The record is a 108-nucleotide RNA sequence from Bacillaceae bacterium SAS-127, which matches "RNA Staph. aureus E (RoxS)" in Rfam. A search with the family's covariance model found it, with a score of 104 bits. Gene Ontology term of the family: regulation of translational initiation. The base pairs follow the family's consensus structure, which is taken from published work. It was shown to be regulated by the presence of nitric oxide (NO).
[Rfam]
RNA sequence: GUGAAGUUGAUCACAAACAAACAUAUACCCCUUUGUUUGACCGUGAAAAAUUUCUCCCAUCCCCUUUGUUCGUUAGAAAAGACCUUGUAGCUAAUACAAGGUCUUUUC
Dot-bracket structure: ..((((((..((((...((((((..........))))))...))))..))))))...............(....)...(((((((((((.....)))))))))))...
Numbered sequence: 001g002u003g004a005a006g007u008u009g010a011u012c013a014c015a016a017a018c019a020a021a022c023a024u025a026u027a028c029c030c031c032u033u034u035g036u037u038u039g040a041c042c043g044u045g046a047a048a049a050a051u052u053u054c055u056c057c058c059a060u061c062c063c064c065u066u067u068g069u070u071c072g073u074u075a076g077a078a079a080a081g082a083c084c085u086u087g088u089a090g091c092u093a094a095u096a097c098a099a100g101g102u103c104u105u106u107u108c
Stems, first nucleotide, its partner, number of pairs: 003054006011046004018039006070075001079105011